[Rfam]
RNA sequence: GCGGAUGCCAGGUCGAAGCGAGUGCAACGGCGGGAGCGGAGGACCCAGGCACGACGGGACGCGCCCGCAGCACGUACGGGCCGUCUCUUGGGGUGAAGCCGCUGCAUGCGGCCGGGCAUCUUCGCCUGCUCGAACCCGACAGGUCAUCCUUCGCAGGCUGACGACGAAGGGUUG
Numbered sequence: 001g002c003g004g005a006u007g008c009c010a011g012g013u014c015g016a017a018g019c020g021a022g023u024g025c026a027a028c029g030g031c032g033g034g035a036g037c038g039g040a041g042g043a044c045c046c047a048g049g050c051a052c053g054a055c056g057g058g059a060c061g062c063g064c065c066c067g068c069a070g071c072a073c074g075u076a077c078g079g080g081c082c083g084u085c086u087c088u089u090g091g092g093g094u095g096a097a098g099c100c101g102c103u104g105c106a107u108g109c110g111g112c113c114g115g116g117c118a119u120c121u122u123c124g125c126c127u128g129c130u131c132g133a134a135c136c137c138g139a140c141a142g143g144u145c146a147u148c149c150u151u152c153g154c155a156g157g158c159u160g161a162c163g164a165c166g167a168a169g170g171g172u173u174g
Base pairs, nucleotide, nucleotide: 001158002157008034009033036154037153038152039151040150041149046090047089048088049087091137092136093135099111100110101109102108114131115130116129117128